[Rfam]
RNA sequence: GGGCACGACGACUGGCGAGGGUGGGUCACCACCGGGAAGUCUGCAGUCGGGGCAUCGCCCGCCUGGGUGCCCCGG
Numbered sequence: 001g002g003g004c005a006c007g008a009c010g011a012c013u014g015g016c017g018a019g020g021g022u023g024g025g026u027c028a029c030c031a032c033c034g035g036g037a038a039g040u041c042u043g044c045a046g047u048c049g050g051g052g053c054a055u056c057g058c059c060c061g062c063c064u065g066g067g068u069g070c071c072c073c074g075g
Base pairs, nucleotide, nucleotide: 003044004043005042007041008040009039012036013035014063015062016061017060021032022031023030024029052070053069054068055067056066

The family of this 75-nucleotide sequence from Phycicoccus endophyticus is "ZMP/ZTP riboswitch aptamer (pfl RNA motif)". The literature on the family includes a 2015 paper in Nat Struct Mol Biol by Jones and Ferre-D'Amare, "Recognition of the bacterial alarmone ZMP through long-distance association of two RNA subdomains". A search with the family's covariance model found it, with a score of 42 bits.